Overview
The record is a 212-nucleotide RNA sequence from Streptomyces sporangiiformans, which matches "Streptomyces RNA 1601" in Rfam. On this family, see Vockenhuber et al., RNA Biol 2011: "Deep sequencing-based identification of small non-coding RNAs in Streptomyces coelicolor". Rfam's curators write: Identified by deep sequencing of transcriptome at the end of exponential growth phase. Appears longer on northern blot than sequencing transcript. Streptomyces specific. The match comes from Rfam's covariance-model search (171 bits).
RNA sequence: AACGACCGGCCGGACACGACUGUGCCCGGCCCGCAAGUGGAGGCUCCGAUCUCCCACCUGACCGUCCUCCGGGACGGCGGGUCACCCGGUCAAGGCGGCCACCAUCGUUCCGUACGGACGAUGGAGUCGCUGGACAAGCGCCCCGCGGUUCACCGCGGCGGUGCUCCGGUAGUCCUCGGAGCCCCGCCUGUGUCCCGUCCGGGGCAUUUUUC
Numbered sequence: 001a002a003c004g005a006c007c008g009g010c011c012g013g014a015c016a017c018g019a020c021u022g023u024g025c026c027c028g029g030c031c032c033g034c035a036a037g038u039g040g041a042g043g044c045u046c047c048g049a050u051c052u053c054c055c056a057c058c059u060g061a062c063c064g065u066c067c068u069c070c071g072g073g074a075c076g077g078c079g080g081g082u083c084a085c086c087c088g089g090u091c092a093a094g095g096c097g098g099c100c101a102c103c104a105u106c107g108u109u110c111c112g113u114a115c116g117g118a119c120g121a122u123g124g125a126g127u128c129g130c131u132g133g134a135c136a137a138g139c140g141c142c143c144c145g146c147g148g149u150u151c152a153c154c155g156c157g158g159c160g161g162u163g164c165u166c167c168g169g170u171a172g173u174c175c176u177c178g179g180a181g182c183c184c185c186g187c188c189u190g191u192g193u194c195c196c197g198u199c200c201g202g203g204g205c206a207u208u209u210u211u212c
Stems, first nucleotide, its partner, number of pairs: 004091006012027002028083005034060002037057004041052002062077006093131001095130002098128001102124008140205006146197003154192003157188005163182005